This 104-nucleotide sequence from Cyclopterus lumpus belongs to the Rfam family "mir-454 microRNA precursor family".
[Rfam]
RNA sequence: CCGUGUUCGCCUCGCAGACGAGACCCUAUCAAUAUUGCCUCUGCUUUCACGAGAAUUAACGGAGUAGUGCAAUAUUGCUUAUAGGGUCUUGACUCUGAGGGAUG
Numbered sequence: 001c002c003g004u005g006u007u008c009g010c011c012u013c014g015c016a017g018a019c020g021a022g023a024c025c026c027u028a029u030c031a032a033u034a035u036u037g038c039c040u041c042u043g044c045u046u047u048c049a050c051g052a053g054a055a056u057u058a059a060c061g062g063a064g065u066a067g068u069g070c071a072a073u074a075u076u077g078c079u080u081a082u083a084g085g086g087u088c089u090u091g092a093c094u095c096u097g098a099g100g101g102a103u104g
Base pairs, nucleotide, nucleotide: 020090021089022088023087024086025085026084027083028082029081030077031076032075033074034073035072036071037070038069041067042066043065044064045062
The organism belongs to Cyclopterus, within Eukaryota.